[Rfam]
RNA sequence: UAUAACUUAAUGGAGCUUCCUCCACUCCAAGUCUGAAAAGGAUGUGAGGGUGUAUCACUGCUGCAAACUCAUGCAAUUCCCAUAAGAAGGCAUGGUUUUUAUUGCAAUCUAAGGGCCUGCAUGAAUCUGAAGAAGUGACUGUCUAGUUUUUUCUGGAUAUUGGAGAGAUCAAGGGAAAUCCACACACACUU
Numbered sequence: 001u002a003u004a005a006c007u008u009a010a011u012g013g014a015g016c017u018u019c020c021u022c023c024a025c026u027c028c029a030a031g032u033c034u035g036a037a038a039a040g041g042a043u044g045u046g047a048g049g050g051u052g053u054a055u056c057a058c059u060g061c062u063g064c065a066a067a068c069u070c071a072u073g074c075a076a077u078u079c080c081c082a083u084a085a086g087a088a089g090g091c092a093u094g095g096u097u098u099u100u101a102u103u104g105c106a107a108u109c110u111a112a113g114g115g116c117c118u119g120c121a122u123g124a125a126u127c128u129g130a131a132g133a134a135g136u137g138a139c140u141g142u143c144u145a146g147u148u149u150u151u152u153c154u155g156g157a158u159a160u161u162g163g164a165g166a167g168a169u170c171a172a173g174g175g176a177a178a179u180c181c182a183c184a185c186a187c188a189c190u191u
Stems, first nucleotide, its partner, number of pairs: 013180002017176004023167001025165005036154001061132002064129002070123004079115001
RNA: MIR159 microRNA precursor family